[Rfam]
RNA sequence: CCUUCGGAGUGUCAAACAAACAGGAGUAGGAAUAUCCGAAACUGGGCACGAUGAACAAGGAA
Numbered sequence: 001c002c003u004u005c006g007g008a009g010u011g012u013c014a015a016a017c018a019a020a021c022a023g024g025a026g027u028a029g030g031a032a033u034a035u036c037c038g039a040a041a042c043u044g045g046g047c048a049c050g051a052u053g054a055a056c057a058a059g060g061a062a
Stems, first nucleotide, its partner, number of pairs: 001060004009049005021044003029037003
Dot-bracket structure: ((((....(((((.......(((.....(((...)))....)))))))).......))))..
Shown here is a 62-nucleotide RNA sequence, a member of the family "RAGATH-18 RNA". Rfam's curators write: Actinobacteria, Firmicutes, Fusobacteria, Thermotogae (1 example). Rfam's curators put it in the seed alignment.